[Rfam]
The record is a 75-nucleotide RNA from Anisakis simplex, which matches "mir-252 microRNA precursor family" in Rfam. Lineage of the source: Eukaryota > Nematoda > Spirurina > Anisakidae > Anisakis simplex complex. Rfam links the family to the GO terms miRNA-mediated post-transcriptional gene silencing and RISC complex. The base pairs follow the family's consensus structure, which was predicted with RNAalifold. A reference for the family is Ruby et al. (2006), "Large-scale sequencing reveals 21U-RNAs and additional microRNAs and endogenous siRNAs in C. elegans", Cell. The family is grouped with related families in Rfam's "mir-252 microRNA precursor family".

RNA sequence: ACACCAAGCUAAGUAGUAGUGCCGCAGGUGAAUGGUUUAUUCAAAUUACCUGCACUCUGCUGCUUAACUUGGAUU
Numbered sequence: 001a002c003a004c005c006a007a008g009c010u011a012a013g014u015a016g017u018a019g020u021g022c023c024g025c026a027g028g029u030g031a032a033u034g035g036u037u038u039a040u041u042c043a044a045a046u047u048a049c050c051u052g053c054a055c056u057c058u059g060c061u062g063c064u065u066a067a068c069u070u071g072g073a074u075u
Stems, first nucleotide, its partner, number of pairs: 001075001004072004010066010024053007